[Rfam]
RNA sequence: GGGUCGAUGAUAACCUUAUAUUGUUUUGAAGAGAGGUGAUGACAAAAAUCAUGCUCAGGCCUGCUGAGGCCC
Numbered sequence: 001g002g003g004u005c006g007a008u009g010a011u012a013a014c015c016u017u018a019u020a021u022u023g024u025u026u027u028g029a030a031g032a033g034a035g036g037u038g039a040u041g042a043c044a045a046a047a048a049u050c051a052u053g054c055u056c057a058g059g060c061c062u063g064c065u066g067a068g069g070c071c072c
Stems, first nucleotide, its partner, number of pairs: 001072004005066002008063002